[Rfam]
Description: A member of the RNA family "glmS glucosamine-6-phosphate activated ribozyme aptamer" from Ornithinibacillus halophilus, 172 nucleotides long. NCBI's taxonomy places the organism under Bacteria, Bacillati, Bacillota, Bacilli, Ornithinibacillus. The base pairs follow the family's consensus structure, which is taken from published work. It is annotated as a riboswitch. For this family Rfam cites "Control of gene expression by a natural metabolite-responsive ribozyme" (Winkler et al., Nature, 2004).
RNA sequence: AUAUUUUCUUAAGCGCCAGGACUAUUUUCUGAACGGAAUAGAAAGUAGUUGACGAGGGGGAAGGUUAUCGAAGUAUUCGGCGGAUACCUUCCGAUUGCUGCAUCUCAAUCGUAUGCUUUUUCUCCAAAACAAUGAGGCAACUUAUUGGACAAAGAGACGAAGCAAGAUGCCU
Number, nucleotide and partner (000 for none) at each position: 001a000002u000003a000004u000005u000006u000007u000008c000009u000010u000011a000012a000013g000014c000015g000016c000017c000018a000019g000020g050021a049022c048023u047024a046025u045026u044027u043028u000029c041030u000031g000032a000033a000034c000035g000036g000037a000038a000039u000040a000041g029042a000043a027044a026045g025046u024047a023048g022049u021050u020051g000052a000053c000054g000055a000056g000057g000058g000059g000060g091061a090062a089063g088064g087065u000066u000067a000068u080069c079070g078071a077072a000073g000074u000075a000076u000077u071078c070079g069080g068081c000082g000083g000084a000085u000086a000087c064088c063089u062090u061091c060092c111093g110094a109095u108096u107097g106098c000099u000100g000101c000102a000103u000104c000105u000106c097107a096108a095109u094110c093111g092112u000113a000114u000115g000116c162117u161118u160119u159120u000121u157122c156123u000124c000125c000126a000127a000128a000129a000130c147131a146132a145133u144134g143135a142136g141137g000138c000139a000140a000141c136142u135143u134144a133145u132146u131147g130148g000149a000150c000151a000152a000153a000154g000155a000156g122157a121158c000159g119160a118161a117162g116163c000164a000165a000166g000167a000168u000169g000170c000171c000172u000